[Rfam]
Shown here is a 59-nucleotide RNA, a member of the family "S15-Halobacteria ribosomal protein leader". The sequence is in the family's curated seed alignment.
RNA sequence: AUGGGAACGGCACGACCGCAAAUCCGACUCGCCUUCGGGCUCUGGGAUUGCGGUAGUGC
Numbered sequence: 001a002u003g004g005g006a007a008c009g010g011c012a013c014g015a016c017c018g019c020a021a022a023u024c025c026g027a028c029u030c031g032c033c034u035u036c037g038g039g040c041u042c043u044g045g046g047a048u049u050g051c052g053g054u055a056g057u058g059c
Stems, first nucleotide, its partner, number of pairs: 010059004015054007024046002031040003